[Rfam]
RNA sequence: UGGCGGGGGAGCACUACAACCGGAGGAGCCUGCGGUUUAAUUGGACUCAACGCCGGACAUCUCACCAGCAUCGACAGCAACAAUGACGAUCAGGUUGAUGACCUUAUCAGAGCUGCUGAGAGGAGGUGCAUGGCCGCCGUCAGCUCGUACCGUGAGGCGUCCUGUUAAGUCAGGCAACGAGCGAGACCCGCACUCCUAAUUGCCAGCACCGGGUUCGCCCGGGUGGGUACAUUAGGAGGACUGCCGUGGCUAACACGGAGGAAGGAACGGGCAACGGUAGGUCAGUAUGCCCCGAAUGUGCUGGGCUACACGCGGGCUACAAUGGCCAAGACAAUGGGUUCCAACCGCGAAAGCGGACGGUAAUCUCCUAAACUUGGUCGUAGUUCGGAUUGAGGGCUGAAACCCGCCCUCAUGAAGCUGGAUUCGGUAGUAAUCGCGUGUCAGCAGCGCGCGGUGAAUACGUCCCUGCUCCUUGCACACACCGCCCGUCAAAGCACCCGAGUGGGGUCCGGAUGAGGCCGAGUUCCUCGGUCGAAUCUGGGCUCCGCAAGGGGGCUUAAGUCGUAACAAGGUAGCCGUAGGGGAAUCUGCGGCUGGAUC
Numbered sequence: 001u002g003g004c005g006g007g008g009g010a011g012c013a014c015u016a017c018a019a020c021c022g023g024a025g026g027a028g029c030c031u032g033c034g035g036u037u038u039a040a041u042u043g044g045a046c047u048c049a050a051c052g053c054c055g056g057a058c059a060u061c062u063c064a065c066c067a068g069c070a071u072c073g074a075c076a077g078c079a080a081c082a083a084u085g086a087c088g089a090u091c092a093g094g095u096u097g098a099u100g101a102c103c104u105u106a107u108c109a110g111a112g113c114u115g116c117u118g119a120g121a122g123g124a125g126g127u128g129c130a131u132g133g134c135c136g137c138c139g140u141c142a143g144c145u146c147g148u149a150c151c152g153u154g155a156g157g158c159g160u161c162c163u164g165u166u167a168a169g170u171c172a173g174g175c176a177a178c179g180a181g182c183g184a185g186a187c188c189c190g191c192a193c194u195c196c197u198a199a200u201u202g203c204c205a206g207c208a209c210c211g212g213g214u215u216c217g218c219c220c221g222g223g224u225g226g227g228u229a230c231a232u233u234a235g236g237a238g239g240a241c242u243g244c245c246g247u248g249g250c251u252a253a254c255a256c257g258g259a260g261g262a263a264g265g266a267a268c269g270g271g272c273a274a275c276g277g278u279a280g281g282u283c284a285g286u287a288u289g290c291c292c293c294g295a296a297u298g299u300g301c302u303g304g305g306c307u308a309c310a311c312g313c314g315g316g317c318u319a320c321a322a323u324g325g326c327c328a329a330g331a332c333a334a335u336g337g338g339u340u341c342c343a344a345c346c347g348c349g350a351a352a353g354c355g356g357a358c359g360g361u362a363a364u365c366u367c368c369u370a371a372a373c374u375u376g377g378u379c380g381u382a383g384u385u386c387g388g389a390u391u392g393a394g395g396g397c398u399g400a401a402a403c404c405c406g407c408c409c410u411c412a413u414g415a416a417g418c419u420g421g422a423u424u425c426g427g428u429a430g431u432a433a434u435c436g437c438g439u440g441u442c443a444g445c446a447g448c449g450c451g452c453g454g455u456g457a458a459u460a461c462g463u464c465c466c467u468g469c470u471c472c473u474u475g476c477a478c479a480c481a482c483c484g485c486c487c488g489u490c491a492a493a494g495c496a497c498c499c500g501a502g503u504g505g506g507g508u509c510c511g512g513a514u515g516a517g518g519c520c521g522a523g524u525u526c527c528u529c530g531g532u533c534g535a536a537u538c539u540g541g542g543c544u545c546c547g548c549a550a551g552g553g554g555g556c557u558u559a560a561g562u563c564g565u566a567a568c569a570a571g572g573u574a575g576c577c578g579u580a581g582g583g584g585a586a587u588c589u590g591c592g593g594c595u596g597g598a599u600c
Base pairs, nucleotide, nucleotide: 001479002478003476004475005474007473008472009471010470011469012468013467016463017462020427021426022425023424024423025320027318028317029316030315031314032313033312034311035309036308041056042055043054044053065304066303067302068301069300070299071298075118076117077116078115081112088108089107090106092104093103094102122293123292125291126290127289128288131287132286133282134281135280136278137277138276139275143182144181145180146179147178148177150157151156161174162173163172164171188270189269190268193238194237195236196235197234198233199232203227204226207225208224209223210221211220212219213218241261242260244258245257246256247255248254324379325378326377327376328375329374330373336367337366338365341360342359345356346355347354348353386417391412392411393410394409395408396407397406433455434454435453436452437451438450439449440448482571484568487564488563490561492558493557494556495555497553498552499551502548503547504546505545506544507543508542509541510540511539512538513537514536517533518532519531520530521529522528523527573596574595575594576593577592578591579590580589581588582587
About this RNA: Shown here is a 600-nucleotide part of an RNA from Haloplanus ruber, a member of the family "Archaeal small subunit ribosomal RNA". Its Rfam clan is "SSU clan". Lineage of the source: Archaea > Methanobacteriota > Halobacteriales > Haloferacaceae > Haloplanus. Rfam 15.1 lists 709 matches to the family in 491 species.